[Rfam]
RNA sequence: UUUGGUGUCCGGGCCCCUCUGGCGGACGUGGCGGCACGUUCGUGAUGUCGGCACCGAUC
Number, nucleotide and partner (000 for none) at each position: 001u000002u000003u000004g000005g054006u053007g000008u000009c051010c050011g049012g048013g000014c000015c000016c000017c000018u000019c000020u000021g000022g043023c042024g041025g040026a039027c038028g037029u036030g000031g000032c000033g000034g000035c000036a029037c028038g027039u026040u025041c024042g023043u022044g000045a000046u000047g000048u012049c011050g010051g009052c000053a006054c005055c000056g000057a000058u000059c000